[Rfam]
RNA sequence: AAGGCGUGAAAGACAAGGUAGUGAGAUGAAUUGUGAGAGUAACCAUCUCACUACCCAUGUCUUUCAGCUUUCC
Numbered sequence: 001a002a003g004g005c006g007u008g009a010a011a012g013a014c015a016a017g018g019u020a021g022u023g024a025g026a027u028g029a030a031u032u033g034u035g036a037g038a039g040u041a042a043c044c045a046u047c048u049c050a051c052u053a054c055c056c057a058u059g060u061c062u063u064u065c066a067g068c069u070u071u072c073c
Stems, first nucleotide, its partner, number of pairs: 008065008017055002020052009